This 72-nucleotide sequence from Octodon degus belongs to the Rfam family "U1A polyadenylation inhibition element (PIE)". A search with the family's covariance model found it, with a score of 60 bits. This family represents the U1A polyadenylation inhibition element (PIE). PIE is a regulatory RNA which is responsible for the regulation of the length of the polyA tail of the U1A pre-mRNA. The PIE is located in the U1A mRNA 3' UTR. PIE adopts a U-shaped structure, with binding sites for a single U1A protein at each bend and when complexed with the two proteins it blocks activity of poly(A) polymerase (PAP), and inhibits its activity. On this family, see Clerte and Hall, Biochemistry 2004: "Global and Local Dynamics of the U1A Polyadenylation Inhibition Element (PIE) RNA and PIE RNA-U1A Complexes". Lineage of the source: Eukaryota > Metazoa > Eumetazoa > Euteleostomi > Octodon.

RNA sequence: CGCCACAGUGCUGCCCCCAGUCUGUCCCCAGACAUUGCACCUGGCGCUGUUAGGCUGGAAUUAAAGUGUUUU
Numbered sequence: 001c002g003c004c005a006c007a008g009u010g011c012u013g014c015c016c017c018c019a020g021u022c023u024g025u026c027c028c029c030a031g032a033c034a035u036u037g038c039a040c041c042u043g044g045c046g047c048u049g050u051u052a053g054g055c056u057g058g059a060a061u062u063a064a065a066g067u068g069u070u071u072u
Stems, first nucleotide, its partner, number of pairs: 005050005017044003020033005